A member of the RNA family "OppA 5' UTR thermometer" from Yersinia pestis, 304 nucleotides long.
The organism belongs to Yersinia pestis subsp. microtus, within Bacteria.
It is one of the family's seed sequences.
For this family Rfam cites "Temperature-responsive in vitro RNA structurome of Yersinia pseudotuberculosis" (Righetti et al., Proc Natl Acad Sci U S A, 2016).
Rfam classes the family as an RNA thermoregulator.
Positioned upstream of gene for oligopeptide uptake.

RNA sequence: AACUUUGUGAAAAAAGUUCGCUUAUAUUUUUAUGAAAUUUAGCUGUAGUGAUUAUUUUGGAAUAGUUAAUUUAUUUUGGGAUGGUUGAUGCAUUUUGGAAUAGUUGAUGCAUGUCGUUGAUAGCUAAUUGACCAUCGCCAUAGACAAAAUAUCACCACAUGUGAGGUUUACGUUACCGGGUUCGUUCCCCAGGUAACGCAAAUUUAGAAUACCGUUUAAAGGUGAGUUUGCCUGUUCACUGGGCAAUACAUAAUAAAAUGGAGUACAUAUAAACAUGACCAACAUCACAAAGAAGAAUCUCAUU
Dot-bracket structure: ..((((.(((.....(((.(.((((((((((((........(((.((((((....................(((((((..(((((.((((....((((....(((((((.....)))))))..)))).....)))))))))...)))))))..(((........)))....(((((((((.......))).))))))((((((((.....(((.......)))))))))))....)))))))))........))))))........)))))).)..))).....))).))))............